[Rfam]
RNA sequence: CAGCGUUCUCAGGGCGGGGUGGAAGUCCCCACCGGCGGUGAUGGCCGCUGCAGCCGAUGGUUGCGGCGGCACCAGCCCGCGAGCGCCCGGCCGGGCCACCGGCCGGGGUCAGCAGACCCGGUGUGAAUCCGGGGCCGACGGUCACAGUCCGGAUGAAAGAGAGCGCGU
Dot-bracket structure: ..((((((((......(((.......))).[[((((((......................................))))..((...........................))...(((((.......)))))..)).(((.....]]))).......))))))))..
Numbered sequence: 001c002a003g004c005g006u007u008c009u010c011a012g013g014g015c016g017g018g019g020u021g022g023a024a025g026u027c028c029c030c031a032c033c034g035g036c037g038g039u040g041a042u043g044g045c046c047g048c049u050g051c052a053g054c055c056g057a058u059g060g061u062u063g064c065g066g067c068g069g070c071a072c073c074a075g076c077c078c079g080c081g082a083g084c085g086c087c088c089g090g091c092c093g094g095g096c097c098a099c100c101g102g103c104c105g106g107g108g109u110c111a112g113c114a115g116a117c118c119c120g121g122u123g124u125g126a127a128u129c130c131g132g133g134g135c136c137g138a139c140g141g142u143c144a145c146a147g148u149c150c151g152g153a154u155g156a157a158a159g160a161g162a163g164c165g166c167g168u
Stems, first nucleotide, its partner, number of pairs: 003166008017029003031148002033137002035080004083113002117133005139151003
FMN riboswitch aptamer (RFN element): a 168-nucleotide RNA from Pseudaquabacterium pictum. About the family: The RFN element is a highly conserved domain that is found frequently in the 5'-untranslated regions of prokaryotic mRNAs that encode for flavin mononucleotide (FMN) biosynthesis and transport proteins. Lineage of the source: Bacteria > Pseudomonadati > Betaproteobacteria > Sphaerotilaceae > Pseudaquabacterium. The match comes from Rfam's covariance-model search (90 bits).